[Rfam]
A member of the RNA family "Glycine riboswitch aptamer" from Luteimonas sp. J16, 116 nucleotides long.
RNA sequence: GACCAACACUCUGGAGAGACCGCCCGGCACUGCCGGAACCGGCGCCGAAGGGGCACGAACCACGCGGCCAACCCACGCGGUUCCAAACUCUCAGGCAGAAGGACAGAGGGGCACCA
Numbered sequence: 001g002a003c004c005a006a007c008a009c010u011c012u013g014g015a016g017a018g019a020c021c022g023c024c025c026g027g028c029a030c031u032g033c034c035g036g037a038a039c040c041g042g043c044g045c046c047g048a049a050g051g052g053g054c055a056c057g058a059a060c061c062a063c064g065c066g067g068c069c070a071a072c073c074c075a076c077g078c079g080g081u082u083c084c085a086a087a088c089u090c091u092c093a094g095g096c097a098g099a100a101g102g103a104c105a106g107a108g109g110g111g112c113a114c115c116a
Stems, first nucleotide, its partner, number of pairs: 007110001009108005020042003044096003047092002051090003057083005

Its family is annotated with glycine biosynthetic process in the Gene Ontology.